RNA sequence: UUAACUAAAUUGCUUGGUGGAUAAAAGAACUUAUAAGCCAAUGCAAUGAAUAAUAUAUUGCCCCUGCGCGAGGACCCCGGGGAGAAUGAACCGGGGGGCGAUGCGGGGGCAACAGCUCGGUCAUAGCGAGGUCCCCACGGGAGAGCCUUCCGCGUUACGGAGCACGAUGACCGUGGGUAACCCUGACCGAGCACACUUCUGCCCGCCUGGGUUAACCCGCUUGAGAAUGCCGUUCCAUGGCUUCAAUGAAGGCGGGGGUUACGGGCGGGCAACAUAUUU
Numbered sequence: 001u002u003a004a005c006u007a008a009a010u011u012g013c014u015u016g017g018u019g020g021a022u023a024a025a026a027g028a029a030c031u032u033a034u035a036a037g038c039c040a041a042u043g044c045a046a047u048g049a050a051u052a053a054u055a056u057a058u059u060g061c062c063c064c065u066g067c068g069c070g071a072g073g074a075c076c077c078c079g080g081g082g083a084g085a086a087u088g089a090a091c092c093g094g095g096g097g098g099c100g101a102u103g104c105g106g107g108g109g110c111a112a113c114a115g116c117u118c119g120g121u122c123a124u125a126g127c128g129a130g131g132u133c134c135c136c137a138c139g140g141g142a143g144a145g146c147c148u149u150c151c152g153c154g155u156u157a158c159g160g161a162g163c164a165c166g167a168u169g170a171c172c173g174u175g176g177g178u179a180a181c182c183c184u185g186a187c188c189g190a191g192c193a194c195a196c197u198u199c200u201g202c203c204c205g206c207c208u209g210g211g212u213u214a215a216c217c218c219g220c221u222u223g224a225g226a227a228u229g230c231c232g233u234u235c236c237a238u239g240g241c242u243u244c245a246a247u248g249a250a251g252g253c254g255g256g257g258g259u260u261a262c263g264g265g266c267g268g269g270c271a272a273c274a275u276a277u278u279u
Stems, first nucleotide, its partner, number of pairs: 060110008075096006115192008127139002130136002151173001154171004160165001200271010216256007229241002
HgcG RNA (Pab40): a 279-nucleotide RNA from Thermococcus barophilus. A search with the family's covariance model found it, with a score of 210 bits. Gene Ontology term of the family: RNA processing. The HgcG ncRNA gene was identified computationally in AT-rich hyperthermophiles. The genes were named hgcA through hgcG ('high GC'). HgcG is of unknown function. hgcG is significantly similar to a region of the Archaeoglobus fulgidus genome. By type it is an H/ACA-box small nucleolar RNA.